[Rfam]
RNA: Small nucleolar RNA SNORD35
RNA sequence: GGUAUAAAUGAUGAAUGUCUCUGCGGAUGCCACUGUGGGCAGUGCCGAUAAUGCCAAUGGCUUAGCUGAUGCCAGGAA
Numbered sequence: 001g002g003u004a005u006a007a008a009u010g011a012u013g014a015a016u017g018u019c020u021c022u023g024c025g026g027a028u029g030c031c032a033c034u035g036u037g038g039g040c041a042g043u044g045c046c047g048a049u050a051a052u053g054c055c056a057a058u059g060g061c062u063u064a065g066c067u068g069a070u071g072c073c074a075g076g077a078a
Base pairs, nucleotide, nucleotide: 001073002072003071004070